[Rfam]
RNA sequence: CUCGCCGCGAGGCGAGAUCUAAAGAAAGCGGGCGGCAAACCUCCGGACCGAGGACCACGAACCCCAGGUGAGGCUGGCGGUAGUUGGACGAGCUUGCAUUACAAAGCAAAGUCCUUGCUAUCGAAGACUAUCGCUAGUAAAUGGGGCGGGUAGAUGGAGGGAAAGACAAUGUU
Numbered sequence: 001c002u003c004g005c006c007g008c009g010a011g012g013c014g015a016g017a018u019c020u021a022a023a024g025a026a027a028g029c030g031g032g033c034g035g036c037a038a039a040c041c042u043c044c045g046g047a048c049c050g051a052g053g054a055c056c057a058c059g060a061a062c063c064c065c066a067g068g069u070g071a072g073g074c075u076g077g078c079g080g081u082a083g084u085u086g087g088a089c090g091a092g093c094u095u096g097c098a099u100u101a102c103a104a105a106g107c108a109a110a111g112u113c114c115u116u117g118c119u120a121u122c123g124a125a126g127a128c129u130a131u132c133g134c135u136a137g138u139a140a141a142u143g144g145g146g147c148g149g150g151u152a153g154a155u156g157g158a159g160g161g162a163a164a165g166a167c168a169a170u171g172u173u
Stems, first nucleotide, its partner, number of pairs: 001016006028173001031170001036165001040160006046151001048149003062146005073138003077134001079132006086114004092107004